RNA sequence: UUACCGAAAAGGCAAACUUAUCGAAAGAUAAGGACGCAAAGCCACGGACCUAAAGUUUUUAUACUAUGGUAGCCGGGCCACCGAA
Numbered sequence: 001u002u003a004c005c006g007a008a009a010a011g012g013c014a015a016a017c018u019u020a021u022c023g024a025a026a027g028a029u030a031a032g033g034a035c036g037c038a039a040a041g042c043c044a045c046g047g048a049c050c051u052a053a054a055g056u057u058u059u060u061a062u063a064c065u066a067u068g069g070u071a072g073c074c075g076g077g078c079c080a081c082c083g084a085a
Stems, first nucleotide, its partner, number of pairs: 012037002017032006041078003045075003048070003055064002
RNA: c-di-GMP-I riboswitch aptamer